[Rfam]
RNA sequence: ACCCCGCGCAUGUCCGGGUUAUGACAUGUACCUCCCUGUUGGACUUGGCCCGAGCUUCGGCUCGGGUCUUUUUU
Numbered sequence: 001a002c003c004c005c006g007c008g009c010a011u012g013u014c015c016g017g018g019u020u021a022u023g024a025c026a027u028g029u030a031c032c033u034c035c036c037u038g039u040u041g042g043a044c045u046u047g048g049c050c051c052g053a054g055c056u057u058c059g060g061c062u063c064g065g066g067u068c069u070u071u072u073u074u
Stems, first nucleotide, its partner, number of pairs: 008029007047068003051064005